[Rfam]
RNA sequence: AAAGCAAAUUGCUCUAUCGCUGUUCCGCUAUUAGCGGGAUGGAGGAAAGUCCGGGCAACAUAGAGCAUCCUGCUUCCUAACGGGAAGGCGCCCUUGUAAUAAAGGCGACAGAAAGUGCUACAGAAAACAAACCGCUUUAAGUCUUUGGGCUUUUAGUAAGGGUGAAAACGUGAGGUAAGAGCUCACGACUUUGCAUGGCGACAUGUAUCGUGGUAAACCUCAGGAGUUGAAAGGUCAAAUAAGUUUUGAAAGAGUUGCUCGCUCUGUGAUGUGAAAGCAUUGUCAAAAUGGGUAGACCGAUAGACCAUAAUAGCAAUAUUAUGGCAAGAUAAAUGGUAGAGACAUCUUGAAUUGUUUCAGGAUGACAGAACCCGGCUUACAAAUUUGCAUUAUUA
Numbered sequence: 001a002a003a004g005c006a007a008a009u010u011g012c013u014c015u016a017u018c019g020c021u022g023u024u025c026c027g028c029u030a031u032u033a034g035c036g037g038g039a040u041g042g043a044g045g046a047a048a049g050u051c052c053g054g055g056c057a058a059c060a061u062a063g064a065g066c067a068u069c070c071u072g073c074u075u076c077c078u079a080a081c082g083g084g085a086a087g088g089c090g091c092c093c094u095u096g097u098a099a100u101a102a103a104g105g106c107g108a109c110a111g112a113a114a115g116u117g118c119u120a121c122a123g124a125a126a127a128c129a130a131a132c133c134g135c136u137u138u139a140a141g142u143c144u145u146u147g148g149g150c151u152u153u154u155a156g157u158a159a160g161g162g163u164g165a166a167a168a169c170g171u172g173a174g175g176u177a178a179g180a181g182c183u184c185a186c187g188a189c190u191u192u193g194c195a196u197g198g199c200g201a202c203a204u205g206u207a208u209c210g211u212g213g214u215a216a217a218c219c220u221c222a223g224g225a226g227u228u229g230a231a232a233g234g235u236c237a238a239a240u241a242a243g244u245u246u247u248g249a250a251a252g253a254g255u256u257g258c259u260c261g262c263u264c265u266g267u268g269a270u271g272u273g274a275a276a277g278c279a280u281u282g283u284c285a286a287a288a289u290g291g292g293u294a295g296a297c298c299g300a301u302a303g304a305c306c307a308u309a310a311u312a313g314c315a316a317u318a319u320u321a322u323g324g325c326a327a328g329a330u331a332a333a334u335g336g337u338a339g340a341g342a343c344a345u346c347u348u349g350a351a352u353u354g355u356u357u358c359a360g361g362a363u364g365a366c367a368g369a370a371c372c373c374g375g376c377u378u379a380c381a382a383a384u385u386u387g388c389a390u391u392a393u394u395a
Base pairs, nucleotide, nucleotide: 001391002390004388005387006386007385008384009383010382011380012341013340014339015338016337017336018335020042021041022040023039024038025037026036027035028034047378048377049376051375052374053373054372055371056229057228058227059226066273068225069224070223071222072221073087074086075085076084077083088109089107090106091105092104110220111219115218116217117214118213119212132161133160134157135156136155139152140151141150142149143148169187170186171185172184173183174182192207193206194205195204196203197202233298234297235296236295243289244288245287246286247285248284267282268281269280270279271278305324306323307322308321309320310319311318312317
Background: Bacterial RNase P class A: a 395-nucleotide RNA from Pedobacter cryophilus. The family's consensus secondary structure is taken from published work. The organism belongs to Pedobacter, within Bacteria. A search with the family's covariance model found it, with a score of 258 bits. The family's RNA type in Rfam is ribozyme. The family is grouped with related families in Rfam's "RNaseP clan".